[Rfam]
RNA sequence: UGGUGGACUAGGCCGGGCAGUUAGGCCCUGCUCGUCACCCGUGAAAUAGGUCUUCAGCGGGGGCCGAACCCGGAGGCGUCCGGUCAGACCGACACGGGCCCCGGGAGCCGACGUGGAAGCCUCGUCCGUCGGGGGCAGCGGCCCACGGGCCCCAUCCGCAGGGGUGGUCGUCCGUGGUUCGUCGGUGAAAUCGGGUCAGGCACGGAAGUGAGCAGCCCAUCACCGGACGUGCGCCGCUCGACGGGGUGCGGGGUGGAGGAGGCAACCGGGACUACCCGUGUCGGAACGCCGGGCAAUCCCGUCGUCCACCA
Number, nucleotide and partner (000 for none) at each position: 001u311002g310003g309004u308005g307006g306007a305008c304009u000010a000011g065012g064013c063014c062015g033016g032017g031018c030019a029020g028021u000022u000023a000024g000025g000026c000027c000028c020029u019030g018031c017032u016033c015034g000035u000036c000037a000038c061039c060040c059041g058042u057043g000044a000045a000046a000047u000048a000049g000050g000051u000052c000053u000054u000055c000056a000057g042058c041059g040060g039061g038062g014063g013064c012065c011066g000067a000068a000069c000070c000071c301072g300073g299074a000075g297076g000077c000078g294079u293080c292081c291082g289083g000084u000085c000086a000087g000088a000089c284090c283091g282092a281093c280094a279095c278096g277097g276098g275099c000100c270101c269102c268103g267104g266105g000106a000107g263108c262109c261110g000111a000112c258113g000114u256115g000116g000117a000118a000119g254120c253121c252122u251123c250124g249125u248126c244127c243128g242129u241130c240131g239132g238133g237134g235135g234136c233137a000138g230139c229140g228141g179142c000143c177144c176145a175146c174147g173148g172149g171150c170151c000152c167153c166154a165155u164156c163157c162158g000159c000160a000161g000162g157163g156164g155165u154166g153167g152168u000169c000170g150171u149172c148173c147174g146175u145176g144177g143178u000179u141180c000181g000182u226183c225184g224185g223186u222187g221188a220189a000190a000191u000192c000193g218194g217195g216196u215197c000198a000199g000200g000201c210202a209203c208204g000205g000206a000207a000208g203209u202210g201211a000212g000213c000214a000215g196216c195217c194218c193219a000220u188221c187222a186223c185224c184225g183226g182227a000228c140229g139230u138231g000232c000233g136234c135235c134236g000237c133238u132239c131240g130241a129242c128243g127244g126245g000246g000247u000248g125249c124250g123251g122252g121253g120254u119255g000256g114257a000258g112259g000260a000261g109262g108263c107264a000265a000266c104267c103268g102269g101270g100271a000272c000273u000274a000275c098276c097277c096278g095279u094280g093281u092282c091283g090284g089285a000286a000287c000288g000289c082290c000291g081292g080293g079294c078295a000296a000297u075298c000299c073300c072301g071302u000303c000304g008305u007306c006307c005308a004309c003310c002311a001
RNA: Archaeal signal recognition particle RNA
Organism: Salinigranum rubrum